Rfam assigns this 113-nucleotide sequence from Lepidothrix coronata to the family "Potassium channel RNA editing signal". The literature on the family includes a 2004 paper in Nat Struct Mol Biol by Bhalla et al., "Control of human potassium channel inactivation by editing of a small mRNA hairpin". Taxonomically the source falls in Lepidothrix (Eukaryota, Deuterostomia, Teleostomi, Pipridae).

RNA sequence: CUAGUUAUGGUGACAUGGUGCCCAAGACAAUCGCUGGGAAGAUCUUUGGCUCCAUUUGCUCCCUGAGCGGGGUGCUGGUCAUUGCUCUGCCCGUUCCAGUCAUCGUUUCCAAC
Numbered sequence: 001c002u003a004g005u006u007a008u009g010g011u012g013a014c015a016u017g018g019u020g021c022c023c024a025a026g027a028c029a030a031u032c033g034c035u036g037g038g039a040a041g042a043u044c045u046u047u048g049g050c051u052c053c054a055u056u057u058g059c060u061c062c063c064u065g066a067g068c069g070g071g072g073u074g075c076u077g078g079u080c081a082u083u084g085c086u087c088u089g090c091c092c093g094u095u096c097c098a099g100u101c102a103u104c105g106u107u108u109c110c111a112a113c
Stems, first nucleotide, its partner, number of pairs: 002112001004109001007106004012101003017096002020094002036076002039073001048062002